Annotation: Guanidine-I riboswitch aptamer: a 95-nucleotide RNA sequence from Sedimentibacter saalensis. The source organism's lineage runs through Bacteria, Bacillati, Bacillota, Tissierellia and Sedimentibacter. Its family is annotated with regulation of gene expression in the Gene Ontology.
RNA sequence: UUUUUUGUUUUCUAGGGUUCCGCAAUUUAUAUUGGCAGGUCCGAGAGAAAACGCACAGUUGACUGUGUACACGGAAGGAUAAAAGCCUGGGAGAU
Numbered sequence: 001u002u003u004u005u006u007g008u009u010u011u012c013u014a015g016g017g018u019u020c021c022g023c024a025a026u027u028u029a030u031a032u033u034g035g036c037a038g039g040u041c042c043g044a045g046a047g048a049a050a051a052c053g054c055a056c057a058g059u060u061g062a063c064u065g066u067g068u069a070c071a072c073g074g075a076a077g078g079a080u081a082a083a084a085g086c087c088u089g090g091g092a093g094a095u
Base pairs, nucleotide, nucleotide: 007052008051009050010049011048012047015042016041020039021038022036023034024033025032026031053068054067055066056065057064058063070090072093076088077087078086